[Rfam]
Nucleotides: 051
Stems, first nucleotide, its partner, number of pairs: 002019007038051005
Number, partner (000 for none) and nucleotide at each position: 001000c002019c003018g004017c005016g006015a007014g008013g009000a010000c011000g012000a013008c014007c015006u016005c017004g018003c019002g020000u021000u022000u023000u024000u025000c026000u027000g028000g029000g030000c031000g032000c033000u034000u035000u036000a037000g038051c039050c040049g041048g042047g043000a044000c045000g046000a047042c048041c049040u050039g051038g
Background:
Guanidine-II riboswitch aptamer (mini-ykkC): a 51-nucleotide sequence from Candidatus Filomicrobium marinum. A search with the family's covariance model found it, with a score of 38 bits. NCBI's taxonomy places the organism under Bacteria, Pseudomonadati, Pseudomonadota, Alphaproteobacteria, Filomicrobium. The family's consensus secondary structure is taken from published work.